The record is a 121-nucleotide sequence from Haemaphysalis longicornis, which matches "Phenylalanine leader peptide" in Rfam. A search with the family's covariance model found it, with a score of 62 bits. Rfam 15.1 lists 379 matches to the family in 290 species.
[Rfam]
RNA sequence: AAGGAAAUUUUUUUUUUUUGUUUUUUUUCCCCCUUUUUUUUUUAAAAAAAUUUUUAAAUUUUUAAAAAAAAGGGGGGGGGGGGAAAAAAAAAAAAAACCCCCCCUGGGGGGUUUUUUUUUU
Numbered sequence: 001a002a003g004g005a006a007a008u009u010u011u012u013u014u015u016u017u018u019u020g021u022u023u024u025u026u027u028u029c030c031c032c033c034u035u036u037u038u039u040u041u042u043u044a045a046a047a048a049a050a051u052u053u054u055u056a057a058a059u060u061u062u063u064a065a066a067a068a069a070a071a072g073g074g075g076g077g078g079g080g081g082g083g084a085a086a087a088a089a090a091a092a093a094a095a096a097a098c099c100c101c102c103c104c105u106g107g108g109g110g111g112u113u114u115u116u117u118u119u120u121u
Stems, first nucleotide, its partner, number of pairs: 016090003021086006028080008037071004043056004059065002094115009
Notes
It is annotated as a cis-regulatory leader.